[Rfam]
RNA sequence: AGAUAAGAUUGAGGAGCAAUAAUUAUCAGUAGUUAUAGAGGGUUAGCCAGCUAUAAUCUAUAAUGAAAGGAAUUAUUGCCGAAGUCUAUCCUAGUGGCUGCUAGGUUAGAUUGGGGCUGUAUUUAAUAAAUACAGAACUGUCACUAAUUUUUAGUGAAGGGCUAUCUUAUCG
Numbered sequence: 001a002g003a004u005a006a007g008a009u010u011g012a013g014g015a016g017c018a019a020u021a022a023u024u025a026u027c028a029g030u031a032g033u034u035a036u037a038g039a040g041g042g043u044u045a046g047c048c049a050g051c052u053a054u055a056a057u058c059u060a061u062a063a064u065g066a067a068a069g070g071a072a073u074u075a076u077u078g079c080c081g082a083a084g085u086c087u088a089u090c091c092u093a094g095u096g097g098c099u100g101c102u103a104g105g106u107u108a109g110a111u112u113g114g115g116g117c118u119g120u121a122u123u124u125a126a127u128a129a130a131u132a133c134a135g136a137a138c139u140g141u142c143a144c145u146a147a148u149u150u151u152u153a154g155u156g157a158a159g160g161g162c163u164a165u166c167u168u169a170u171c172g
Stems, first nucleotide, its partner, number of pairs: 006167004011162001016079009032064008083112006090105005113139002117135007141157007
Overview:
Rfam assigns this 172-nucleotide sequence from Halobacteroides halobius to the family "Lysine riboswitch aptamer". Rfam 15.1 lists 3,224 matches to the family in 1,923 species.